[Rfam]
The family of this 136-nucleotide sequence from Denticeps clupeoides is "Small nucleolar RNA SNORA77". The family's RNA type in Rfam is H/ACA-box small nucleolar RNA. From the family's description: ACA63 (SNORA77) is a member of the H/ACA class of snoRNAs that guide the sites of modification of uridines to pseudouridines. This snoRNA was identified by computational screening and its expression in mouse experimentally verified by Northern blot and primer extension analysis. ACA63 is proposed to guide the pseudouridylation of 18S rRNA U814. The organism belongs to Denticeps, within Eukaryota. It scores 54 bits against the family's covariance model.
RNA sequence: GCAGGCUCACUCUGUUUCUUGCUGUUUUUUUACUCCAGCUUGAAACUUUUUCUGUCUGCUACAUUAACAUGCAGAAUUUAUCACAGGUGUUUUCCUUUUUUCAAAGGAAAGCGUUGGGAUGUUCUGCUAUAAUUGA
Numbered sequence: 001g002c003a004g005g006c007u008c009a010c011u012c013u014g015u016u017u018c019u020u021g022c023u024g025u026u027u028u029u030u031u032a033c034u035c036c037a038g039c040u041u042g043a044a045a046c047u048u049u050u051u052c053u054g055u056c057u058g059c060u061a062c063a064u065u066a067a068c069a070u071g072c073a074g075a076a077u078u079u080a081u082c083a084c085a086g087g088u089g090u091u092u093u094c095c096u097u098u099u100u101u102c103a104a105a106g107g108a109a110a111g112c113g114u115u116g117g118g119a120u121g122u123u124c125u126g127c128u129a130u131a132a133u134u135g136a
Base pairs, nucleotide, nucleotide: 001059002058003057004056005055006054014046015045016044017043018042022038023037024036071127072126073125074124075123076122077121081119082118084116085115086114089112090111091110092109093108